[Rfam]
RNA sequence: UCUGGGGCGACCCAGAAUCAGAAGGAAGUCAGCGGCAAAUCUCCGCCCUUAGGGACACGAACUUCAUAUAAGGCUAGAUGUGCUUGGGUGAGACUGCGAAACAAGUCAAAACCCUUACUGCCAAAGGGUGCAUAGAGUAAAUGAAGUGGGGACAUGGAGAGGAAGAAUGUGUG
Number, nucleotide and partner (000 for none) at each position: 001u016002c015003u014004g013005g012006g011007g000008c000009g000010a000011c006012c005013c004014a003015g002016a001017a000018u000019c000020a000021g000022a000023a000024g000025g000026a000027a000028g000029u000030c171031a170032g000033c000034g000035g000036c165037a000038a000039a000040u160041c159042u158043c157044c156045g155046c151047c150048c149049u148050u000051a000052g000053g000054g000055a000056c000057a000058c000059g000060a000061a000062c146063u145064u144065c143066a142067u141068a000069u000070a000071a000072g000073g138074c137075u136076a000077g000078a133079u132080g131081u130082g129083c128084u000085u000086g114087g113088g112089u111090g000091a000092g107093a106094c105095u104096g000097c000098g000099a000100a000101a000102c000103a000104a095105g094106u093107c092108a000109a000110a000111a089112c088113c087114c086115u000116u000117a000118c000119u000120g000121c000122c000123a000124a000125a000126g000127g000128g083129u082130g081131c080132a079133u078134a000135g000136a075137g074138u073139a000140a000141a067142u066143g065144a064145a063146g062147u000148g049149g048150g047151g046152a000153c000154a000155u045156g044157g043158a042159g041160a040161g000162g000163a000164a000165g036166a000167a000168u000169g000170u031171g030172u000173g000

Rfam assigns this 173-nucleotide RNA from Peribacillus cavernae to the family "Group II catalytic intron D1-D4-3". Rfam's curators write: Group II introns are found in rRNA, tRNA and mRNA of organelles in fungi, plants and protists, and also in mRNA in bacteria. The organism belongs to Peribacillus, within Bacteria.